[Rfam]
RNA sequence: GAAGCCCGCCAGGCCGUCGCUGGUGCGAAAGCACUGGAGGAACGUCCGGACUGCACAGGGCAGCGUAGGAGGUAACGCCUCUCCACCGCGAGGUGAGGAUCAGAGCAACAGAGACGAGUCUCGCGGCGCAAGCCGCGGGGGUGAAACGGGCAAUCUCUACGCGCAGCAAUACCAAAUAGGCCAGCGUCGAUGUGGCUCCGCGGAGCUGGCGGGUAGGUAGCACCGAGCCGGGUGGGCGACCCCCGGCCCAGAUGAAUGGCGGUCACGUCCGGGAAACCGGGCGCACAGAAUCCGGCGUAUCGGCGGGCUUCACAU
Dot-bracket structure: ((((((((((((((((((.(((((((....)))))))....[[[.[[[[[((((...[[[[.((((((((((.....)))))(((((....)))).)((...((((.............((((((((....)))))).)).........))..)))))))))))))...((((......((((((.....((((]]]]))))..)))))).....)))).......((((((.((....))))))))..........)))))))..........................]]]]]]]].).))))))))))....

A member of the RNA family "Bacterial RNase P class A" from Ramlibacter albus, 315 nucleotides long. The source organism's lineage runs through Bacteria, Pseudomonadota, Betaproteobacteria, Burkholderiales and Ramlibacter. The match comes from Rfam's covariance-model search (200 bits). Rfam describes the family as follows. Ribonuclease P (RNase P) is a ubiquitous endoribonuclease, found in archaea, bacteria and eukarya as well as chloroplasts and mitochondria. The base pairs follow the family's consensus structure, which is taken from published work.